[Rfam]
RNA sequence: AGCUCAGUGAUUGCAGCCAAUUACAUUGGCCAUAUACUCUAUGCUGACCUCAGUUGAUGAAAAGUCAAAGAGUAUGAGAGCU
Numbered sequence: 001a002g003c004u005c006a007g008u009g010a011u012u013g014c015a016g017c018c019a020a021u022u023a024c025a026u027u028g029g030c031c032a033u034a035u036a037c038u039c040u041a042u043g044c045u046g047a048c049c050u051c052a053g054u055u056g057a058u059g060a061a062a063a064g065u066c067a068a069a070g071a072g073u074a075u076g077a078g079a080g081c082u
Stems, first nucleotide, its partner, number of pairs: 001082005
RNA: Small nucleolar RNA U54